[Rfam]
RNA sequence: GCUGGGCGUGGUGGCACGUGUCUGUAGUCCCACCUGCUUGGGAGGCUGAGGCUGGAGGAUUGCUUGAGCCCAGGAGUUCUGGACUGUAGUGCACUGGCUGAGCAGGUGUCUGCACUAAGUUUGGCAUAUGGACACCCCUCAGGAGCGAGGGACCACUAGGUUGCCUAAGGAGGGGUGAACUGGUACAGGUCAGAAACGGAGCAGGUCAAAACUCCCGUGCUGAUCAGUAGUAGGGUCAUGCCUGUGAAUAGCCACUGCAUCCAGCCUGGGUAACAUAGAGAGAUUCUGUCUCUA
Numbered sequence: 001g002c003u004g005g006g007c008g009u010g011g012u013g014g015c016a017c018g019u020g021u022c023u024g025u026a027g028u029c030c031c032a033c034c035u036g037c038u039u040g041g042g043a044g045g046c047u048g049a050g051g052c053u054g055g056a057g058g059a060u061u062g063c064u065u066g067a068g069c070c071c072a073g074g075a076g077u078u079c080u081g082g083a084c085u086g087u088a089g090u091g092c093a094c095u096g097g098c099u100g101a102g103c104a105g106g107u108g109u110c111u112g113c114a115c116u117a118a119g120u121u122u123g124g125c126a127u128a129u130g131g132a133c134a135c136c137c138c139u140c141a142g143g144a145g146c147g148a149g150g151g152a153c154c155a156c157u158a159g160g161u162u163g164c165c166u167a168a169g170g171a172g173g174g175g176u177g178a179a180c181u182g183g184u185a186c187a188g189g190u191c192a193g194a195a196a197c198g199g200a201g202c203a204g205g206u207c208a209a210a211a212c213u214c215c216c217g218u219g220c221u222g223a224u225c226a227g228u229a230g231u232a233g234g235g236u237c238a239u240g241c242c243u244g245u246g247a248a249u250a251g252c253c254a255c256u257g258c259a260u261c262c263a264g265c266c267u268g269g270g271u272a273a274c275a276u277a278g279a280g281a282g283a284u285u286c287u288g289u290c291u292c293u294a
Base pairs, nucleotide, nucleotide: 001046002045003044004023005022006021007020008019009018010017028043029042030041048292049291050290051289052288054286055285056284060281061280063278064277068271069270070269071268072267073266074265079264080263081262082261083260085259086258087257088256089255090254091253094251095250096249098246102245103244104243105242106241107240108239109238110234111233114231115230116229117228119225121223122222123221124220125219126218127217129158130157131156136151137150138149139148140147164170165169172215173214174213175212176211181208182207183206184205190199191198
RNA: Metazoan signal recognition particle RNA